[Rfam]
RNA sequence: GUUUCCACGUCUCCUUAUCAUUCGACUGUCCAGACUGUAUUUGUGAACUGGACGGAGAACUGAUAAGGGCUUGUGGCGAC
Numbered sequence: 001g002u003u004u005c006c007a008c009g010u011c012u013c014c015u016u017a018u019c020a021u022u023c024g025a026c027u028g029u030c031c032a033g034a035c036u037g038u039a040u041u042u043g044u045g046a047a048c049u050g051g052a053c054g055g056a057g058a059a060c061u062g063a064u065a066a067g068g069g070c071u072u073g074u075g076g077c078g079a080c
Stems, first nucleotide, its partner, number of pairs: 012069009021059003026055002030051002

This 80-nucleotide RNA sequence from Stegodyphus mimosarum belongs to the Rfam family "mir-184 microRNA precursor family". The family has 66 seed sequences and 948 matches in Rfam 15.1. Gene Ontology terms of the family: gene silencing by miRNA and RISC complex. NCBI's taxonomy places the organism under Eukaryota, Metazoa, Protostomia, Eresoidea, Stegodyphus.